[Rfam]
RNA sequence: GAUGCUCUAACGGGGUGCCCGGUCGCAAGACCGUGCUGAGAGGCAGGUUGCCAACCCGAAGAACCUGAUCCGGUUUGUACCGGCGGAGGGAUUAGACGCCUGCACAGC
Numbered sequence: 001g002a003u004g005c006u007c008u009a010a011c012g013g014g015g016u017g018c019c020c021g022g023u024c025g026c027a028a029g030a031c032c033g034u035g036c037u038g039a040g041a042g043g044c045a046g047g048u049u050g051c052c053a054a055c056c057c058g059a060a061g062a063a064c065c066u067g068a069u070c071c072g073g074u075u076u077g078u079a080c081c082g083g084c085g086g087a088g089g090g091a092u093u094a095g096a097c098g099c100c101u102g103c104a105c106a107g108c
Base pairs, nucleotide, nucleotide: 006096007095008094009093010092011058012057013056014055017036018035020033021032022031023030043051044050045049064089065088066087070083071082072081073080
The record is a 108-nucleotide RNA from Hoeflea marina, which matches "TPP riboswitch aptamer (THI element)" in Rfam. Rfam links the family to the GO term thiamine pyrophosphate binding. The organism belongs to Hoeflea, within Bacteria.